[Rfam]
RNA sequence: GUUGGUUAUGGAGACAUGCACCCUCAGACGGCACUUGGAAAGUUCGUGGGCUGUCUUUGUGCGGUCGCUGGUGUUUUGACUAUCGCUCUCCCUGUACCGGUCAUUGUUUCAAAU
Numbered sequence: 001g002u003u004g005g006u007u008a009u010g011g012a013g014a015c016a017u018g019c020a021c022c023c024u025c026a027g028a029c030g031g032c033a034c035u036u037g038g039a040a041a042g043u044u045c046g047u048g049g050g051c052u053g054u055c056u057u058u059g060u061g062c063g064g065u066c067g068c069u070g071g072u073g074u075u076u077u078g079a080c081u082a083u084c085g086c087u088c089u090c091c092c093u094g095u096a097c098c099g100g101u102c103a104u105u106g107u108u109u110c111a112a113a114u
Stems, first nucleotide, its partner, number of pairs: 001114002005110001008107004013102003018097001020095002037077004050062002
Background:
Shown here is a 114-nucleotide RNA sequence from Schistocephalus solidus, a member of the family "Potassium channel RNA editing signal". From the family's description: This family represents a group of sequences related to the human potassium channel Kv1.1 hairpin element which directs the efficient modification of an adenosine to inosine by an adenosine deaminase acting on RNA (ADAR). The source organism's lineage runs through Eukaryota, Protostomia, Cestoda, Diphyllobothriidae and Schistocephalus. A search with the family's covariance model found it, with a score of 93 bits. The family's RNA type in Rfam is cis-regulatory element. The base pairs follow the family's consensus structure, which is taken from published work.